[Rfam]
RNA sequence: UUCCAUGAAUGAUGAGAAACAUAUCAAUUAUCAGUUAUCCCUGUCUGAUUUAUUUCUGCUGAAUUGACGUUCGCUGACAUGGAA
Numbered sequence: 001u002u003c004c005a006u007g008a009a010u011g012a013u014g015a016g017a018a019a020c021a022u023a024u025c026a027a028u029u030a031u032c033a034g035u036u037a038u039c040c041c042u043g044u045c046u047g048a049u050u051u052a053u054u055u056c057u058g059c060u061g062a063a064u065u066g067a068c069g070u071u072c073g074c075u076g077a078c079a080u081g082g083a084a
Base pairs, nucleotide, nucleotide: 001084002083003082004081005080006079007078
Overview:
Rfam assigns this 84-nucleotide sequence from Genlisea aurea to the family "Small nucleolar RNA R38". Pairs were carried over by alignment from the consensus structure, which was predicted with PFOLD. A search with the family's covariance model found it, with a score of 61 bits. From the family's description: snoR38 is a C/D box small nucleolar RNA conserved across yeast, human, Arabidopsis and rice. It is encoded in the intron of elongation factor-1 gamma in both pombe and cerevisiae. snoR38 guides the methylation of 2'-O-ribose sites in 28S rRNA.